[Rfam]
RNA sequence: AAAUAAAAGUAUAAGUAAUUCCGUAUAAUAUCAGGGAUAUGGCCUGAAAGUUUCUACCGAUUAGCCGUAAACUAAUCGACUACGGGAUGUUGAUGUUAGUUU
Numbered sequence: 001a002a003a004u005a006a007a008a009g010u011a012u013a014a015g016u017a018a019u020u021c022c023g024u025a026u027a028a029u030a031u032c033a034g035g036g037a038u039a040u041g042g043c044c045u046g047a048a049a050g051u052u053u054c055u056a057c058c059g060a061u062u063a064g065c066c067g068u069a070a071a072c073u074a075a076u077c078g079a080c081u082a083c084g085g086g087a088u089g090u091u092g093a094u095g096u097u098a099g100u101u102u
Stems, first nucleotide, its partner, number of pairs: 018088008029049001031047005058078007
A member of the RNA family "Purine riboswitch aptamer" from Orenia marismortui, 102 nucleotides long. It scores 92 bits against the family's covariance model. The source organism's lineage runs through Bacteria, Bacillota, Halanaerobiales, Halobacteroidaceae and Orenia. Pairs were carried over by alignment from the consensus structure, which is taken from published work. From the family's description: Riboswitches are metabolite binding domains within certain messenger RNAs that serve as precision sensors for their corresponding targets. Allosteric rearrangement of mRNA structure is mediated by ligand binding, and this results in modulation of gene expression. A class of riboswitches that selectively recognises guanine and becomes saturated at concentrations as low as 5 nM. In Bacillus subtilis, this mRNA motif is located on at least five separate transcriptional units that together encode 17 genes that are mostly involved in purine transport and purine nucleotide biosynthesis.